This 96-nucleotide RNA from Rhizobium subbaraonis belongs to the Rfam family "RcsR1 sRNA".
Rfam describes the family as follows. RcsR1 (rhizobial cold and salinity stress riboregulator 1) trans-acting sRNA, formerly known as SmelC587, is a stress-related riboregulator, conserved in Sinorhizobium, Rhizobium and Agrobacterium.
The literature on the family includes a 2015 paper in RNA Biol by Baumgardt et al., "The stress-related, rhizobial small RNA RcsR1 destabilizes the autoinducer synthase encoding mRNA sinI in Sinorhizobium meliloti".
The match comes from Rfam's covariance-model search (89 bits).

RNA sequence: ACAUUUCGACCUGGUGGUGGGCUCGCUGAAGCGGCCUCGACCAGUCAUGCGUGAUUGAAACGAACAGCCGCCCGGAAACCUCGAGGCGGCUUUUUC
Numbered sequence: 001a002c003a004u005u006u007c008g009a010c011c012u013g014g015u016g017g018u019g020g021g022c023u024c025g026c027u028g029a030a031g032c033g034g035c036c037u038c039g040a041c042c043a044g045u046c047a048u049g050c051g052u053g054a055u056u057g058a059a060a061c062g063a064a065c066a067g068c069c070g071c072c073c074g075g076a077a078a079c080c081u082c083g084a085g086g087c088g089g090c091u092u093u094u095u096c
Base pairs, nucleotide, nucleotide: 011044012043013042014041015040017038019037020036021035022034024033025032026031048059050057051056066091067090068089069088070087071086072085073083074082075081